[Rfam]
RNA: Small nucleolar RNA SNORD14
RNA sequence: UGAUGAUGAUGAAGAAAUGAAAGGCUUGUUUCUCAGAACAUUCGCAGUGGCCGCCUAAGAGCUUUCGCCUUCGCCGGGCUUGAGAGCUUAUGCUGUUUAUGUCCUUCCUCGGAUGUCUGAAUCG
Numbered sequence: 001u002g003a004u005g006a007u008g009a010u011g012a013a014g015a016a017a018u019g020a021a022a023g024g025c026u027u028g029u030u031u032c033u034c035a036g037a038a039c040a041u042u043c044g045c046a047g048u049g050g051c052c053g054c055c056u057a058a059g060a061g062c063u064u065u066c067g068c069c070u071u072c073g074c075c076g077g078g079c080u081u082g083a084g085a086g087c088u089u090a091u092g093c094u095g096u097u098u099a100u101g102u103c104c105u106u107c108c109u110c111g112g113a114u115g116u117c118u119g120a121a122u123c124g
Base pairs, nucleotide, nucleotide: 001124002123003122004121061087062086063085064084065083066082